[Rfam]
RNA sequence: GGGGCUGGAUGAGAGACUGGUGUUCUCCACGGUCUUCAAAACCGCUUGAGACCACCGUGUGUGGUCUGGUGGGUUCGAUUCCCACACAGUCCC
Dot-bracket structure: ((((((((..(((((.(....)))))).(((((.......)))).)..(((((.........)))))..((((.......))))).)))))))
RNA: Selenocysteine transfer RNA